Purine riboswitch aptamer: a 100-nucleotide RNA from Paenibacillus bovis. The family is grouped with related families in Rfam's "Purine riboswitches". A search with the family's covariance model found it, with a score of 75 bits. Pairs were carried over by alignment from the consensus structure, which is taken from published work.

RNA sequence: GAGUUUGUAACCAUUCUCUUUCGUAUAACCCCGGUAAUACGGUCCGGGGGUCUCUACCAGGAGCCGUAAAAUCCUGAUUACGAAAAAUGCUGCCAUAUCC
Number, nucleotide and partner (000 for none) at each position: 001g000002a000003g000004u000005u000006u000007g000008u000009a000010a000011c000012c000013a000014u000015u000016c000017u000018c000019u085020u084021u083022c082023g081024u080025a079026u000027a000028a000029c049030c048031c047032c046033g045034g044035u000036a000037a000038u000039a000040c000041g000042g000043u000044c034045c033046g032047g031048g030049g029050g000051u000052c000053u000054c000055u000056a000057c000058c076059a075060g074061g073062a072063g000064c000065c000066g000067u000068a000069a000070a000071a000072u062073c061074c060075u059076g058077a000078u000079u025080a024081c023082g022083a021084a020085a019086a000087a000088u000089g000090c000091u000092g000093c000094c000095a000096u000097a000098u000099c000100c000